A member of the RNA family "Clostridiales-1 RNA" from Eubacterium sp. CAG:146, 169 nucleotides long.
RNA sequence: UGAUGUCAGGGUCAAAAGGUCAAAACGCCGUUCGUGCUUGUACGAUAAGGUGUUUGACUUUGGGACCCACGGAACAUGAGAAAGUAGCGAUUUACGUAGUAAAUCAGCGGAUUUCGAAUGUUUCAGAAUUACGGGAGCUGCAUUAGCUGCGAAGUAAUUCGUGACAUCA
Numbered sequence: 001u002g003a004u005g006u007c008a009g010g011g012u013c014a015a016a017a018g019g020u021c022a023a024a025a026c027g028c029c030g031u032u033c034g035u036g037c038u039u040g041u042a043c044g045a046u047a048a049g050g051u052g053u054u055u056g057a058c059u060u061u062g063g064g065a066c067c068c069a070c071g072g073a074a075c076a077u078g079a080g081a082a083a084g085u086a087g088c089g090a091u092u093u094a095c096g097u098a099g100u101a102a103a104u105c106a107g108c109g110g111a112u113u114u115c116g117a118a119u120g121u122u123u124c125a126g127a128a129u130u131a132c133g134g135g136a137g138c139u140g141c142a143u144u145a146g147c148u149g150c151g152a153a154g155u156a157a158u159u160c161g162u163g164a165c166a167u168c169a
Base pairs, nucleotide, nucleotide: 001169002168003167004166005165006164007163010067011066012065013064016061017060018059019058020057021056023055024054025053026052027051028050029049031047032045033044034043035042036041071124072123073122074121075120076119077118080115081114082113083112087108088107089105090104091103092102093101094100095099126160127159128158129157130156131155132154137150138149140147
By type it is a small RNA.